[Rfam]
Rfam assigns this 84-nucleotide RNA sequence from Xenopus laevis to the family "mir-184 microRNA precursor family". A search with the family's covariance model found it, with a score of 73 bits. Pairs were carried over by alignment from the consensus structure, which was predicted with PFOLD. NCBI's taxonomy places the organism under Eukaryota, Dipnotetrapodomorpha, Amphibia, Anura, Xenopus.
RNA sequence: CCAGUAUCACUUCCUUAUCACUUUUCCAGCCCAGCUUUUCAUGACAAACUGUUGGACGGAGAACUGAUAAGGCUGUGUGACUGU
Numbered sequence: 001c002c003a004g005u006a007u008c009a010c011u012u013c014c015u016u017a018u019c020a021c022u023u024u025u026c027c028a029g030c031c032c033a034g035c036u037u038u039u040c041a042u043g044a045c046a047a048a049c050u051g052u053u054g055g056a057c058g059g060a061g062a063a064c065u066g067a068u069a070a071g072g073c074u075g076u077g078u079g080a081c082u083g084u
Stems, first nucleotide, its partner, number of pairs: 013072008022063006030055002